[Rfam]
The record is a 65-nucleotide RNA sequence, which matches "S15-Flavobacteria ribosomal protein leader" in Rfam. Clan: Ribosomal Protein S15 Leader clan. Rfam classes the family as a cis-regulatory leader. Pairs were carried over by alignment from the consensus structure, which is taken from published work.

RNA sequence: UACAUUUGCACCCUCAAGAGAAAUCUUGGGUUUACAUAAUAAUCAUUUACAAUAAUAUUGGCAUG
Number, nucleotide and partner (000 for none) at each position: 001u000002a000003c000004a000005u000006u000007u000008g000009c000010a000011c000012c000013c000014u029015c028016a027017a026018g025019a024020g000021a000022a000023a000024u019025c018026u017027u016028g015029g014030g000031u000032u000033u000034a000035c000036a000037u000038a000039a000040u000041a000042a000043u000044c000045a000046u000047u000048u000049a000050c000051a000052a000053u000054a000055a000056u000057a000058u000059u000060g000061g000062c000063a000064u000065g000